[Rfam]
RNA sequence: CCGCCCGUCGCUCCUACCGAUUGAGUGAUCCGGUGAAUUAUUCGGACUGACGCAGUGCUCAGCUUCUGGACGUUGCGUUGGAAAGUUUCAUGAACCUUAUCACUUAGAGGAAGGAGAAGUCGUAACAAGGUUUCCGUAGGUGAACCUGCGGAAGGAUCAUUC
Numbered sequence: 001c002c003g004c005c006c007g008u009c010g011c012u013c014c015u016a017c018c019g020a021u022u023g024a025g026u027g028a029u030c031c032g033g034u035g036a037a038u039u040a041u042u043c044g045g046a047c048u049g050a051c052g053c054a055g056u057g058c059u060c061a062g063c064u065u066c067u068g069g070a071c072g073u074u075g076c077g078u079u080g081g082a083a084a085g086u087u088u089c090a091u092g093a094a095c096c097u098u099a100u101c102a103c104u105u106a107g108a109g110g111a112a113g114g115a116g117a118a119g120u121c122g123u124a125a126c127a128a129g130g131u132u133u134c135c136g137u138a139g140g141u142g143a144a145c146c147u148g149c150g151g152a153a154g155g156a157u158c159a160u161u162c
Stems, first nucleotide, its partner, number of pairs: 001129001003126001006122002009119001011116005017110002021106001023105007032096003037091002040088001043085001047081011058069001060068002131154010
Dot-bracket structure: (.(..((.(.(((((.((..(.(((((((..(((..((.(..(...((((((((((((.((.....))).)))))))))))...)..).))..)))..))))))))..)).)))))..).))...)..).((((((((((....))))))))))........
This 162-nucleotide part of an RNA from Symbiodinium sp. CCMP2456 belongs to the Rfam family "Eukaryotic small subunit ribosomal RNA".
The organism belongs to Symbiodinium, within Eukaryota.
The base pairs follow the family's consensus structure, which is taken from published work.